RNA: Lysine riboswitch aptamer
Organism: Macrococcoides bohemicum
RNA sequence: UGUAACAGAUGAGGCGCAUCGAUCAUGAGUAAGUAAUGGUAAUUCUGCAAAUGAAUUACUGAAAGGGUGAGAUGCCGAAAUAUAGUAUUUAUUGCAGUGAAUGCUAUGUUGGAUCCACAGGUUAAGAGCUAUGGAUUUGUCAUUAUUGAAAAAUAAUGGAGUGCAUCGCUUGUA
Number, nucleotide and partner (000 for none) at each position: 001u000002g000003u000004a000005a000006c000007a000008g167009a166010u165011g164012a000013g000014g000015c000016g075017c074018a073019u072020c071021g000022a000023u000024c067025a000026u000027g000028a000029g000030u000031a000032a060033g059034u058035a057036a056037u055038g000039g000040u000041a000042a000043u000044u000045c000046u000047g000048c000049a000050a000051a000052u000053g000054a000055a037056u036057u035058a034059c033060u032061g000062a000063a000064a000065g000066g000067g024068u000069g000070a000071g020072a019073u018074g017075c016076c000077g000078a000079a110080a109081u108082a107083u106084a105085g104086u103087a102088u101089u100090u099091a000092u000093u000094g000095c000096a000097g000098u000099g090100a089101a088102u087103g086104c085105u084106a083107u082108g081109u080110u079111g138112g137113a136114u135115c134116c133117a132118c000119a130120g129121g000122u000123u000124a000125a000126g000127a000128g000129c120130u119131a000132u117133g116134g115135a114136u113137u112138u111139g000140u159141c158142a157143u156144u155145a154146u153147u000148g000149a000150a000151a000152a000153a146154u145155a144156a143157u142158g141159g140160a000161g000162u000163g000164c011165a010166u009167c008168g000169c000170u000171u000172g000173u000174a000